A member of the RNA family "Small nucleolar RNA Z105" from Lupinus angustifolius, 76 nucleotides long. The match comes from Rfam's covariance-model search (58 bits). The base pairs follow the family's consensus structure, which was predicted with CMfinder. On this family, see Chen et al., Nucleic Acids Res 2003: "The high diversity of snoRNAs in plants: identification and comparative study of 120 snoRNA genes from Oryza sativa". Rfam links the family to the GO terms nucleolus and RNA processing.
[Rfam]
RNA sequence: UUGGCAUGGUGAUGAUCCUUUUAAUUUUUCAUAUGAUUAGUCAUGUGAUGAAAUAAAAACCUCCUACUCAUUCUGA
Numbered sequence: 001u002u003g004g005c006a007u008g009g010u011g012a013u014g015a016u017c018c019u020u021u022u023a024a025u026u027u028u029u030c031a032u033a034u035g036a037u038u039a040g041u042c043a044u045g046u047g048a049u050g051a052a053a054u055a056a057a058a059a060c061c062u063c064c065u066a067c068u069c070a071u072u073c074u075g076a
Stems, first nucleotide, its partner, number of pairs: 006071004028052002